Small nucleolar RNA snoR97: a 105-nucleotide RNA sequence from Nelumbo nucifera.
Rfam links the family to the GO terms RNA processing and nucleolus.
It scores 55 bits against the family's covariance model.
The literature on the family includes a 2002 paper in Curr Biol by Marker et al., "Experimental RNomics: identification of 140 candidates for small non-messenger RNAs in the plant Arabidopsis thaliana".

RNA sequence: ACUAAGUUGUGGUUAUGGAGGCUAAUAAACUGAUAUAGUAUGUAUUUUAAUCAGCUUCUUCUUUGGCAUGUUUCAUGAGGUUGGAGUUGAAUAAUAACAACACGA
Numbered sequence: 001a002c003u004a005a006g007u008u009g010u011g012g013u014u015a016u017g018g019a020g021g022c023u024a025a026u027a028a029a030c031u032g033a034u035a036u037a038g039u040a041u042g043u044a045u046u047u048u049a050a051u052c053a054g055c056u057u058c059u060u061c062u063u064u065g066g067c068a069u070g071u072u073u074c075a076u077g078a079g080g081u082u083g084g085a086g087u088u089g090a091a092u093a094a095u096a097a098c099a100a101c102a103c104g105a
Stems, first nucleotide, its partner, number of pairs: 041099003046096001053088006060080004